[Rfam]
RNA: L2-Alphaproteobacteria ribosomal protein leader
RNA sequence: GGGGACCUUUGGGGCCCUAAUUCAGAAGCGAGCUAAUCGUUUCGCAACAUAGCGAUGGGGAAACUCAUCCUUUCUAAACGGAAGACAGAAA
Numbered sequence: 001g002g003g004g005a006c007c008u009u010u011g012g013g014g015c016c017c018u019a020a021u022u023c024a025g026a027a028g029c030g031a032g033c034u035a036a037u038c039g040u041u042u043c044g045c046a047a048c049a050u051a052g053c054g055a056u057g058g059g060g061a062a063a064c065u066c067a068u069c070c071u072u073u074c075u076a077a078a079c080g081g082a083a084g085a086c087a088g089a090a091a
Stems, first nucleotide, its partner, number of pairs: 001018004006014003028068001030066002037061002